Shown here is a 96-nucleotide RNA from Zavarzinia compransoris, a member of the family "Bacterial small signal recognition particle RNA".
The base pairs follow the family's consensus structure, which is taken from published work.
The organism belongs to Zavarzinia, within Bacteria.

Nucleotides: 096
Stems, first nucleotide, its partner, number of pairs: 004090005009084006017075006025065003034059004042051003
Number, partner (000 for none) and nucleotide at each position: 001000g002000g003000a004090g005089g006088u007087u008086g009084g010083c011082g012081a013080u014079g015000g016000a017075c018074g019073g020072a021071u022070c023000a024000c025065u026064c027063g028000c029000c030000a031000a032000c033000c034059c035058g036057g037056u038000c039000a040000g041000g042051u043050c044049c045000g046000g047000a048000a049044g050043g051042a052000a053000g054000c055000a056037g057036c058035c059034g060000u061000a062000a063027c064026g065025a066000a067000c068000u069000c070022g071021a072020u073019u074018c075017g076000g077000g078000u079014c080013g081012u082011u083010g084009u085000c086008c087007a088006a089005u090004c091000u092000c093000c094000c095000a096000c